[Rfam]
RNA sequence: GCGAUGAGCUGAAUUGUGUAAGCCGGUUGACACUCCUUCGCGGAAAUGCACGAUGUGGCGUGCAGUCAAUCGCCUCAAUACGCAGAAAGACGCCUUCUAGGCGUCUUU
Numbered sequence: 001g002c003g004a005u006g007a008g009c010u011g012a013a014u015u016g017u018g019u020a021a022g023c024c025g026g027u028u029g030a031c032a033c034u035c036c037u038u039c040g041c042g043g044a045a046a047u048g049c050a051c052g053a054u055g056u057g058g059c060g061u062g063c064a065g066u067c068a069a070u071c072g073c074c075u076c077a078a079u080a081c082g083c084a085g086a087a088a089g090a091c092g093c094c095u096u097c098u099a100g101g102c103g104u105c106u107u108u
Stems, first nucleotide, its partner, number of pairs: 014078003018074001024072008034043002047064002050061003086108009
A member of the RNA family "BsrF" from Mesobacillus subterraneus, 108 nucleotides long. The family's RNA type in Rfam is small RNA. On this family, see Saito et al., Gene 2008: "Novel small RNA-encoding genes in the intergenic regions of Bacillus subtilis". Lineage of the source: Bacteria > Bacillota > Caryophanales > Bacillaceae > Mesobacillus.